Shown here is a 171-nucleotide RNA from Pseudoflavonifractor sp. An184, a member of the family "Lysine riboswitch aptamer".
Pairs were carried over by alignment from the consensus structure, which is taken from published work.
Its family is annotated with lysine biosynthetic process in the Gene Ontology.

[Rfam]
RNA sequence: AUACAGGAUAGAGGCGCGGUGCGCAUGCGUACCGGGGGACAAGGCCAGGCAGCCGUCCUCCGGGAGAGGGCGGACCGCCGAAGGGCGCCCUUGUCUGCCUGGACGGGGACCCUGGGCCGUUGGGAGAAAAUCCCGCGGACUGUCACAGAUUUGUGGAGCGCUAUCCAGAGG
Dot-bracket structure: .....((((((....(((((.(((.......((((((((................))))))))......))).)))))...((((..(((.(..........).)))..))))((.((((.((((.....)))))))).)).(((((....)))))....)))))).....